[Rfam]
RNA sequence: GCUCGUCCAAGGCAAACCUAGUGAAAGCUAGGGACGCAAAGUUACCGGUCUAAAGGUUGUUUAUUAAUAACAAUAAUUACCUAUGAUAGCGGAACUGCCGAC
Numbered sequence: 001g002c003u004c005g006u007c008c009a010a011g012g013c014a015a016a017c018c019u020a021g022u023g024a025a026a027g028c029u030a031g032g033g034a035c036g037c038a039a040a041g042u043u044a045c046c047g048g049u050c051u052a053a054a055g056g057u058u059g060u061u062u063a064u065u066a067a068u069a070a071c072a073a074u075a076a077u078u079a080c081c082u083a084u085g086a087u088a089g090c091g092g093a094a095c096u097g098c099c100g101a102c
Stems, first nucleotide, its partner, number of pairs: 012037002017032006040096004045092003048087003055081003
A member of the RNA family "c-di-GMP-I riboswitch aptamer" from Thalassotalea sp. ND16A, 102 nucleotides long. The source organism's lineage runs through Bacteria, Pseudomonadota, Gammaproteobacteria, Colwelliaceae and Thalassotalea. Its family is annotated with cyclic-di-GMP binding in the Gene Ontology. The base pairs follow the family's consensus structure, which is taken from published work.